[Rfam]
RNA: Plant signal recognition particle RNA
Organism: Rhodamnia argentea
RNA sequence: GCCGAGCUCAGUCACGGGAGCUUGUGACCCGAGUGGGGGCAUUACUGUGGUGGAACAUGGGCUCGGAUCCUUUGGGCCGGGUCUGGUGCUGCUUCUCGCUGGCCCGCCCGCUCCAAGCCGAGAGUUGUGCCACGUGGUUCGUGCGAAGGCUCGGGCCACGUGGUUCCUAGAGUGGCGGGGUCCGCGUCAGGCUGGUUUCACAGAGCAGCGUUAACCUCCCGCUCUCGGCAGUGGAAGGACAACGGGCCGGUGCCGCCCAGUCCCGCCGUGGUCCAAUGGGCUGAGUCCGACUGAACCACCACUUUU
Numbered sequence: 001g002c003c004g005a006g007c008u009c010a011g012u013c014a015c016g017g018g019a020g021c022u023u024g025u026g027a028c029c030c031g032a033g034u035g036g037g038g039g040c041a042u043u044a045c046u047g048u049g050g051u052g053g054a055a056c057a058u059g060g061g062c063u064c065g066g067a068u069c070c071u072u073u074g075g076g077c078c079g080g081g082u083c084u085g086g087u088g089c090u091g092c093u094u095c096u097c098g099c100u101g102g103c104c105c106g107c108c109c110g111c112u113c114c115a116a117g118c119c120g121a122g123a124g125u126u127g128u129g130c131c132a133c134g135u136g137g138u139u140c141g142u143g144c145g146a147a148g149g150c151u152c153g154g155g156c157c158a159c160g161u162g163g164u165u166c167c168u169a170g171a172g173u174g175g176c177g178g179g180g181u182c183c184g185c186g187u188c189a190g191g192c193u194g195g196u197u198u199c200a201c202a203g204a205g206c207a208g209c210g211u212u213a214a215c216c217u218c219c220c221g222c223u224c225u226c227g228g229c230a231g232u233g234g235a236a237g238g239a240c241a242a243c244g245g246g247c248c249g250g251u252g253c254c255g256c257c258c259a260g261u262c263c264c265g266c267c268g269u270g271g272u273c274c275a276a277u278g279g280g281c282u283g284a285g286u287c288c289g290a291c292u293g294a295a296c297c298a299c300c301a302c303u304u305u306u
Base pairs, nucleotide, nucleotide: 001040002039003038004023005022006021007020008019009018028037029036030035044305047302048301049300050299051298052297053296056293057292058290060288062285063284064283065282066281069279070278072276073275074274075273076272077271078270079264080263081262083260084259085258086257088256089255091253093252099250100249101248102247103246104245105244106243108238109237112235113234114233115232117229118228119227120226121225122224123223124222125221127166129164130163131162132161133160134159135158136157137156138155139154140153141152143150144149167172174219175218177216178215184211185210186209187208192203193202194201